[Rfam]
Nucleotides: 166
Stems, first nucleotide, its partner, number of pairs: 007160005016077009032062006081106010107133002110130008136150006
Number, partner (000 for none) and nucleotide at each position: 001000a002000a003000u004000a005000a006000a007160g008159g009158u010157a011156g012000a013000g014000g015000u016077g017076c018075a019074a020073a021072a022071u023070u024069u025000a026000a027000a028000a029000g030000u031000a032062a033061u034060u035059u036058a037057u038000g039000g040000a041000g042000u043000u044000g045000g046000c047000a048000a049000a050000c051000u052000a053000u054000g055000a056000a057037g058036u059035a060034a061033a062032u063000g064000a065000a066000a067000g068000g069024a070023a071022a072021u073020u074019u075018u076017g077016c078000c079000g080000a081106a082105a083104u084103u085102a086101a087100g088099c089098u090097u091000g092000u093000g094000c095000a096000a097090a098089a099088g100087c101086u102085u103084a104083g105082u106081u107133g108132g109000g110130u111129g112128u113127a114126u115125a116124g117123a118000u119000a120000a121000u122000a123117u124116c125115u126114a127113u128112a129111u130110a131000a132108c133107u134000g135000u136150c137149a138148c139147u140146a141145a142000a143000a144000a145141u146140u147139a148138g149137u150136g151000u152000u153000g154000a155000g156011c157010u158009a159008u160007c161000c162000u163000a164000g165000u166000a
The record is a 166-nucleotide RNA from Oceanivirga miroungae, which matches "Lysine riboswitch aptamer" in Rfam. Lineage of the source: Bacteria > Fusobacteriota > Fusobacteriia > Leptotrichiaceae > Oceanivirga.